Rfam assigns this 74-nucleotide RNA from Gloeothece verrucosa to the family "Cyano-1 RNA".
The family has 265 seed sequences and 283 matches in Rfam 15.1.
By type it is a small RNA.

RNA sequence: UUCGGUGUGAGGAGAAAUGUAGAAAAGCGUUUGGGGUCGAAACACGGCAAGACUCCCAGGCGCUUUUCUCAUUA
Number, nucleotide and partner (000 for none) at each position: 001u000002u000003c000004g000005g000006u000007g000008u000009g000010a000011g000012g000013a000014g000015a000016a000017a000018u000019g000020u000021a069022g068023a067024a066025a065026a000027g000028c062029g061030u000031u000032u000033g057034g056035g055036g053037u052038c051039g000040a000041a000042a000043c000044a000045c000046g000047g000048c000049a000050a000051g038052a037053c036054u000055c035056c034057c033058a000059g000060g000061c029062g028063c000064u000065u025066u024067u023068c022069u021070c000071a000072u000073u000074a000